[Rfam]
A member of the RNA family "c-di-AMP riboswitch aptamer (ydaO/yuaA leader)" from Alkaliphilus peptidifermentans, 132 nucleotides long. The match comes from Rfam's covariance-model search (100 bits).

RNA sequence: AAUAUAAUCAAGCCGAAAGUUUAUAAAAUAAACUGCGGGGGAACCAUUCAAAUAUGGGGUGAAUCGUUAAAACGUAGGCUAUUCCCAAGCCGAACCCGACAGCUAACCUCGUAGGCUUUAGGGAGGGAUAAA
Numbered sequence: 001a002a003u004a005u006a007a008u009c010a011a012g013c014c015g016a017a018a019g020u021u022u023a024u025a026a027a028a029u030a031a032a033c034u035g036c037g038g039g040g041g042a043a044c045c046a047u048u049c050a051a052a053u054a055u056g057g058g059g060u061g062a063a064u065c066g067u068u069a070a071a072a073c074g075u076a077g078g079c080u081a082u083u084c085c086c087a088a089g090c091c092g093a094a095c096c097c098g099a100c101a102g103c104u105a106a107c108c109u110c111g112u113a114g115g116c117u118u119u120a121g122g123g124a125g126g127g128a129u130a131a132a
Base pairs, nucleotide, nucleotide: 011117012116013115014114018034019033020032021031022030023029024028035112036111037110038109039108040107045056046055057097058096059095065074066073067072077091078090079089080088